[Rfam]
RNA sequence: UAAGAGUAUCACUUGAGCCCAGGAGUUUGAGACCAGUCUGGGCAACAAAGUGAAACCUCAU
Number, nucleotide and partner (000 for none) at each position: 001u000002a000003a000004g000005a000006g000007u055008a000009u053010c052011a051012c050013u049014u048015g000016a000017g043018c042019c041020c040021a039022g038023g037024a000025g000026u000027u036028u035029g034030a000031g000032a000033c000034c029035a028036g027037u023038c022039u021040g020041g019042g018043c017044a000045a000046c000047a000048a014049a013050g012051u011052g010053a009054a000055a007056c000057c000058u000059c000060a000061u000
Notes:
This 61-nucleotide RNA from Saimiri boliviensis belongs to the Rfam family "mir-1285 microRNA precursor family". The source organism's lineage runs through Eukaryota, Craniata, Theria, Eutheria and Saimiri boliviensis. A search with the family's covariance model found it, with a score of 60 bits. Rfam links the family to the GO terms miRNA-mediated post-transcriptional gene silencing and RISC complex.